This 308-nucleotide sequence from Neolecta irregularis belongs to the Rfam family "Nuclear RNase P".
[Rfam]
RNA sequence: GCAUCGCUGAACGCCGCGUAUCCUCGCCUACCCACGCGCGAAUCCCUUUCGAGAGAUUCGUGCCCUUAUGCGAGGGGGCAAGUCGGAGAAUCGUCCUCGCCCCGCCUGCUCUCACGAGCCUGCCUCUAACUGGCUGCGGUGGCACCAGAAAGCUCGGCUGCUUCCAGUCAGGUCUCUGGCGCGGGAACGGCUUUGGGAGGCUGCCGCGAGGAUCGAAUGCCUUUUAGUGCAUUCUUGAGUGCAAUACGCGGCCGUCGCGGGUUCGAUUCGCACCCGCGACAACUCAAUUCUGCUCGUCUGGGCGAUGC
Dot-bracket structure: ((((..(((...[[[......(((((.............((((((.......).)))))...........)))))........(((((......((((.........((((....))))..(((.......))).(((((((.............(((...............................)))........)))))))))))......................................]]].(((((((((.........))))))))).......)))))......)))...))))
Clan: RNaseP clan.
Ribonuclease P (RNase P) is a ubiquitous endoribonuclease, found in archaea, bacteria and eukarya as well as chloroplasts and mitochondria.